[Rfam]
RNA sequence: GGCAAGAGUAGAAGCGUUCACCAUCCGCGCGGCGCGUCGCAGACGCACGCCGGAUGGCCGGGAAUUGCUCUUGAA
Numbered sequence: 001g002g003c004a005a006g007a008g009u010a011g012a013a014g015c016g017u018u019c020a021c022c023a024u025c026c027g028c029g030c031g032g033c034g035c036g037u038c039g040c041a042g043a044c045g046c047a048c049g050c051c052g053g054a055u056g057g058c059c060g061g062g063a064a065u066u067g068c069u070c071u072u073g074a075a
Stems, first nucleotide, its partner, number of pairs: 005071006015060001018062002021057007
Dot-bracket structure: ....((((((....[..((.(((((((.......................)))))))..]))...))))))....